The record is a 78-nucleotide RNA sequence from Corynebacterium glutamicum, which matches "ctRNA" in Rfam. Rfam describes the family as follows. Rolling circle replication plasmids contain a number of mechanisms to maintain a low copy number. One of these methods is to transcribe a small RNA called ctRNA (for counter-transcribed RNA) than is transcribed on the opposite strand to RepB the replication initiation protein. ctRNA binds to the mRNA of repB and causes translational inhibition. Its family is annotated with mRNA binding in the Gene Ontology. It is annotated as an antisense RNA. The source organism's lineage runs through Bacteria, Bacillati, Actinomycetes, Corynebacteriaceae and Corynebacterium. The family's consensus secondary structure is taken from published work.
[Rfam]
Nucleotides: 078
Base pairs, nucleotide, nucleotide: 001031002030003029006026007025008024009023010022011021012020033064034063035062036061037060038059039058040057041056042055043054044053045052046051
Number, partner (000 for none) and nucleotide at each position: 001031g002030c003029u004000u005000u006026c007025u008024c009023c010022c011021a012020g013000c014000u015000g016000a017000u018000g019000a020012c021011u022010g023009g024008g025007g026006g027000u028000u029003a030002g031001c032000c033064g034063a035062c036061g037060c038059c039058c040057u041056g042055u043054g044053a045052g046051u047000u048000c049000c050000c051046g052045c053044u054043c055042a056041c057040g058039g059038g060037g061036c062035g063034u064033u065000c066000a067000a068000c069000u070000u071000u072000u073000u074000c075000a076000g077000g078000u